[Rfam]
The record is a 120-nucleotide RNA from butyrate-producing bacterium SM4/1, which matches "FMN riboswitch aptamer (RFN element)" in Rfam. For this family Rfam cites "Regulation of riboflavin biosynthesis and transport genes in bacteria by transcriptional and translational attenuation" (Vitreschak et al., Nucleic Acids Res, 2002). The base pairs follow the family's consensus structure, which is taken from published work. It scores 99 bits against the family's covariance model.
RNA sequence: AACUAUCUUCGGGGCAAGGUGGAAUCCCUGACCGGCAGUGAUAGUCUGCGAACUGCAUCAGCAGCCGAAACGGUGAAAUCCCGUUGCCGACGGUAAUAGUCCGGAUGAGAGAAAAUAUGA
Numbered sequence: 001a002a003c004u005a006u007c008u009u010c011g012g013g014g015c016a017a018g019g020u021g022g023a024a025u026c027c028c029u030g031a032c033c034g035g036c037a038g039u040g041a042u043a044g045u046c047u048g049c050g051a052a053c054u055g056c057a058u059c060a061g062c063a064g065c066c067g068a069a070a071c072g073g074u075g076a077a078a079u080c081c082c083g084u085u086g087c088c089g090a091c092g093g094u095a096a097u098a099g100u101c102c103g104g105a106u107g108a109g110a111g112a113a114a115a116u117a118u119g120a
Base pairs, nucleotide, nucleotide: 004117005116006115008113009112010111017029018028019027031100032099033089034088035049036048037047038046044087045086053064054063069085070084071083072082073081091103092102093101